RNA sequence: UAACUUCAAAUUUGUAUGCAGUUCGAACAGCGCCCUUAGCGGCAAACGUAGGCAAACGUUCCAGCUCCAUACAAAUUUGACGUUA
Numbered sequence: 001u002a003a004c005u006u007c008a009a010a011u012u013u014g015u016a017u018g019c020a021g022u023u024c025g026a027a028c029a030g031c032g033c034c035c036u037u038a039g040c041g042g043c044a045a046a047c048g049u050a051g052g053c054a055a056a057c058g059u060u061c062c063a064g065c066u067c068c069a070u071a072c073a074a075a076u077u078u079g080a081c082g083u084u085a
Base pairs, nucleotide, nucleotide: 008078009077010076011075012074013073014072015071016070018068020066021065022064023063025061026060027059028058034052035051036050039047
Shown here is an 85-nucleotide sequence from Bombyx mori, a member of the family "mir-2807 microRNA precursor family".
Rfam links the family to the GO terms miRNA-mediated post-transcriptional gene silencing and RISC complex.
Rfam 15.1 lists 5,120 matches to the family in 8 species.
The base pairs follow the family's consensus structure, which was predicted with RNAalifold.